Source information:
Rfam assigns this 296-nucleotide RNA from Nannospalax galili to the family "Nuclear RNase P". Rfam links the family to the GO terms tRNA processing, ribonuclease P activity and ribonuclease P complex.
RNA sequence: GGCGGAGGGAAGCUCAUCAGCGGGGCCACGCGCUGAGUGCCAGUCACUCCCCGGCCCCUGGGAAGGUCUGAGACUAGGGCCACGCGCGGCCCUAGCGGGGCCCUCCCCAAGUGGGGAGGUGAGUUCCCAGAGAGCAGGGCUCCGCGCGGGGGCCGACCGGGCAGGAGAGGCCGCGCUAGGCCGGCGGAUGCCCCCCCCGCCGGAGCUUGGAACAGACUCACGGCCAGCCGGCGAGUUCAAUGGCUGAGGUGAGGCACGCCGGCCUCAUAACCCAAUUCAGACUACUCUCCCACGCC
Numbered sequence: 001g002g003c004g005g006a007g008g009g010a011a012g013c014u015c016a017u018c019a020g021c022g023g024g025g026c027c028a029c030g031c032g033c034u035g036a037g038u039g040c041c042a043g044u045c046a047c048u049c050c051c052c053g054g055c056c057c058c059u060g061g062g063a064a065g066g067u068c069u070g071a072g073a074c075u076a077g078g079g080c081c082a083c084g085c086g087c088g089g090c091c092c093u094a095g096c097g098g099g100g101c102c103c104u105c106c107c108c109a110a111g112u113g114g115g116g117a118g119g120u121g122a123g124u125u126c127c128c129a130g131a132g133a134g135c136a137g138g139g140c141u142c143c144g145c146g147c148g149g150g151g152g153c154c155g156a157c158c159g160g161g162c163a164g165g166a167g168a169g170g171c172c173g174c175g176c177u178a179g180g181c182c183g184g185c186g187g188a189u190g191c192c193c194c195c196c197c198c199g200c201c202g203g204a205g206c207u208u209g210g211a212a213c214a215g216a217c218u219c220a221c222g223g224c225c226a227g228c229c230g231g232c233g234a235g236u237u238c239a240a241u242g243g244c245u246g247a248g249g250u251g252a253g254g255c256a257c258g259c260c261g262g263c264c265u266c267a268u269a270a271c272c273c274a275a276u277u278c279a280g281a282c283u284a285c286u287c288u289c290c291c292a293c294g295c296c
Stems, first nucleotide, its partner, number of pairs: 001296004008290003013248004018243001022058004035049005068280005078225004088102005103118006119221007139206003249268007